[Rfam]
RNA sequence: AACAAAAUUAGAGGUUGCGAAGACGAAGAAGUUAGUGGAGCGGUGAACGCACUGAAGCUGAUGGCGGCGUUCUUUGCCGAAAGAAAAAUUGUCACAAAAUUUUUCUUGGGCUGUGUGGUUAAAUCCUACAGACUGUCUUUCUGUCAGUACUGACAGAAAGGGGAGCUAAUCAAAAU
Number, nucleotide and partner (000 for none) at each position: 001a000002a000003c000004a000005a000006a000007a170008u169009u168010a167011g166012a000013g000014g000015u000016u000017g077018c076019g075020a074021a073022g072023a070024c069025g068026a000027a000028g000029a000030a000031g062032u061033u060034a059035g058036u057037g000038g000039a000040g000041c000042g000043g000044u000045g000046a000047a000048c000049g000050c000051a000052c000053u000054g000055a000056a000057g036058c035059u034060g033061a032062u031063g000064g000065c000066g000067g000068c025069g024070u023071u000072c022073u021074u020075u019076g018077c017078c000079g000080a000081a107082a106083g105084a104085a103086a102087a101088a100089u099090u098091g000092u000093c000094a000095c000096a000097a000098a090099a089100u088101u087102u086103u085104u084105c083106u082107u081108g134109g133110g000111c131112u130113g129114u128115g127116u000117g125118g124119u000120u000121a000122a000123a000124u118125c117126c000127u115128a114129c113130a112131g111132a000133c109134u108135g000136u161137c160138u159139u158140u157141c156142u155143g154144u153145c000146a000147g000148u000149a000150c000151u000152g000153a144154c143155a142156g141157a140158a139159a138160g137161g136162g000163g000164a000165g000166c011167u010168a009169a008170u007171c000172a000173a000174a000175a000176u000
A member of the RNA family "Lysine riboswitch aptamer" from Lactococcus lactis, 176 nucleotides long. Taxonomically the source falls in Lactococcus lactis subsp. lactis (Bacteria, Bacillati, Streptococcaceae, Lactococcus). Riboswitches are metabolite binding domains within certain messenger RNAs that serve as precision sensors for their corresponding targets.